[Rfam]
DUF3577 RNA: a 103-nucleotide sequence. The family's consensus secondary structure is taken from published work.
RNA sequence: CGAUUGGAUAAACACGAGCAAUCGUGUGAAACUCGCCUGUAAUCCCGGCAUCACCUUCGAGUGACGGCGACUUUUUUCAGAUGCUGCGCGUUGCAGCACUAUC
Numbered sequence: 001c002g003a004u005u006g007g008a009u010a011a012a013c014a015c016g017a018g019c020a021a022u023c024g025u026g027u028g029a030a031a032c033u034c035g036c037c038u039g040u041a042a043u044c045c046c047g048g049c050a051u052c053a054c055c056u057u058c059g060a061g062u063g064a065c066g067g068c069g070a071c072u073u074u075u076u077u078c079a080g081a082u083g084c085u086g087c088g089c090g091u092u093g094c095a096g097c098a099c100u101a102u103c
Stems, first nucleotide, its partner, number of pairs: 012027006033070005052063003082098006